RNA: MIR2670 microRNA precursor family
Organism: Medicago truncatula
RNA sequence: GAAGGGUAAAAAUAUGUCGAUCGACAUGGGGUAAAAAGAGAUCAACCAUUGGGGUAAACUAAAUCUGCUUCUUUCUACCUCUAAAACUUUUUACCAUGGGUAAAAAGAAUCUUCUUGAGGUAUAAAAAGAACCAGAUUUAGACUUACACCAAGGGUUGAUGUCAUUUUACCCCAAAAAGAUCGGUCUCUUUUUACCCCAU
Numbered sequence: 001g002a003a004g005g006g007u008a009a010a011a012a013u014a015u016g017u018c019g020a021u022c023g024a025c026a027u028g029g030g031g032u033a034a035a036a037a038g039a040g041a042u043c044a045a046c047c048a049u050u051g052g053g054g055u056a057a058a059c060u061a062a063a064u065c066u067g068c069u070u071c072u073u074u075c076u077a078c079c080u081c082u083a084a085a086a087c088u089u090u091u092u093a094c095c096a097u098g099g100g101u102a103a104a105a106a107g108a109a110u111c112u113u114c115u116u117g118a119g120g121u122a123u124a125a126a127a128a129g130a131a132c133c134a135g136a137u138u139u140a141g142a143c144u145u146a147c148a149c150c151a152a153g154g155g156u157u158g159a160u161g162u163c164a165u166u167u168u169a170c171c172c173c174a175a176a177a178a179g180a181u182c183g184g185u186c187u188c189u190u191u192u193u194a195c196c197c198c199a200u
Stems, first nucleotide, its partner, number of pairs: 004197009014187001016185007027174009041160007049152004055146003059141009069131006076122006083115001087107009